[Rfam]
RNA sequence: UCUUCUUCAACACACACGGAUCUGUGUCCAGCGAUCCCGUUCACAGAUUAUUCAUGAAUUUAGUCAUUCACGGGUAUCUGUGUUUCGGUUGAUUACUGGGCAGUUCGACGUUAUACGGAGCCAUCUUUCCUAUGGAUGGUUUUUUGGCAAUCCGGUCGACAGAUCUCAGAUUAAAUGCCAGCUUCAGGUGUUCACUCUGGUCUUGAGUUCCCUUUUGGUGAACUCGGCUGGAGAUCCUGGGUGCUGGCGGCGUCAUAUUCCUGAUCCCUUCGCUGAAGCCGUUGGCUCGUGAAGUUGGGGAAAAACCAUGACAUGCCAACAUAC
Numbered sequence: 001u002c003u004u005c006u007u008c009a010a011c012a013c014a015c016a017c018g019g020a021u022c023u024g025u026g027u028c029c030a031g032c033g034a035u036c037c038c039g040u041u042c043a044c045a046g047a048u049u050a051u052u053c054a055u056g057a058a059u060u061u062a063g064u065c066a067u068u069c070a071c072g073g074g075u076a077u078c079u080g081u082g083u084u085u086c087g088g089u090u091g092a093u094u095a096c097u098g099g100g101c102a103g104u105u106c107g108a109c110g111u112u113a114u115a116c117g118g119a120g121c122c123a124u125c126u127u128u129c130c131u132a133u134g135g136a137u138g139g140u141u142u143u144u145u146g147g148c149a150a151u152c153c154g155g156u157c158g159a160c161a162g163a164u165c166u167c168a169g170a171u172u173a174a175a176u177g178c179c180a181g182c183u184u185c186a187g188g189u190g191u192u193c194a195c196u197c198u199g200g201u202c203u204u205g206a207g208u209u210c211c212c213u214u215u216u217g218g219u220g221a222a223c224u225c226g227g228c229u230g231g232a233g234a235u236c237c238u239g240g241g242u243g244c245u246g247g248c249g250g251c252g253u254c255a256u257a258u259u260c261c262u263g264a265u266c267c268c269u270u271c272g273c274u275g276a277a278g279c280c281g282u283u284g285g286c287u288c289g290u291g292a293a294g295u296u297g298g299g300g301a302a303a304a305a306c307c308a309u310g311a312c313a314u315g316c317c318a319a320c321a322u323a324c
Base pairs, nucleotide, nucleotide: 018166019165020164021163022162023161024160025159026101027100028099029098030097031096033094034093035092036091037088038087039086042082043081044080045079046078047077048076051074052073053072055070056069057068058067109158110157112155117143118142120140121139122138177244178243183241184240185239186238187237188236199229200228201227202226205225206224207223208222209221210220211218212217249317250316251315252312253311254310255309256308265301266300267299268298269297272295273294274293277287278286279285280284
Dot-bracket structure: .................((((((((((((((.(((((((..(((((((..(((.((((........)))).))).)))))))...)))..)))).)))))).......((.(....((.(((...............))).))...........).))))))))))..........((....((((((..........((((..((((((((....)).))))))))))......)))))).))....((((((((........(((((..(((..((((...)))).....))).)))))......)))))..))).......